Shown here is a 77-nucleotide RNA from Sarcophilus harrisii, a member of the family "mir-26 microRNA precursor family".
Pairs were carried over by alignment from the consensus structure, which was predicted with RNAalifold.
A search with the family's covariance model found it, with a score of 76 bits.
RNA sequence: CCGGGACCCGUUUCAAGUAAUCCAGGAUAGGCUGUUUUCUCUUUAGCCUGUUCUCCAUUACUUGGUUCGGGGGCCGG
Numbered sequence: 001c002c003g004g005g006a007c008c009c010g011u012u013u014c015a016a017g018u019a020a021u022c023c024a025g026g027a028u029a030g031g032c033u034g035u036u037u038u039c040u041c042u043u044u045a046g047c048c049u050g051u052u053c054u055c056c057a058u059u060a061c062u063u064g065g066u067u068c069g070g071g072g073g074c075c076g077g
Stems, first nucleotide, its partner, number of pairs: 002076003007071004014064008024054010